RNA sequence: GGACUGUGAUGAGGAUUGAGAAUGUCAUGCACCACUCUGAUUUAAAUCAGUGAGGAGAAAUUGACUCAAACCCACAUAUCUGAGUCC
Dot-bracket structure: ((((...............................................................................))))
Numbered sequence: 001g002g003a004c005u006g007u008g009a010u011g012a013g014g015a016u017u018g019a020g021a022a023u024g025u026c027a028u029g030c031a032c033c034a035c036u037c038u039g040a041u042u043u044a045a046a047u048c049a050g051u052g053a054g055g056a057g058a059a060a061u062u063g064a065c066u067c068a069a070a071c072c073c074a075c076a077u078a079u080c081u082g083a084g085u086c087c
Stems, first nucleotide, its partner, number of pairs: 001087004